[Rfam]
RNA sequence: CCUGUGAGCUUCCCUUUGUCAUCCUAUGCCUGAGCGAUGCCUGGAGGCUGGGACGGUGAAGGGAGGCCCACGGG
Number, nucleotide and partner (000 for none) at each position: 001c000002c000003u000004g000005u000006g000007a000008g000009c000010u000011u064012c063013c062014c061015u060016u059017u000018g057019u056020c000021a000022u053023c052024c051025u050026a049027u000028g048029c047030c046031u045032g000033a000034g000035c000036g000037a000038u000039g000040c000041c000042u000043g000044g000045a031046g030047g029048c028049u026050g025051g024052g023053a022054c000055g000056g019057u018058g000059a016060a015061g014062g013063g012064a011065g000066g000067c000068c000069c000070a000071c000072g000073g000074g000
RNA: mir-204 microRNA precursor family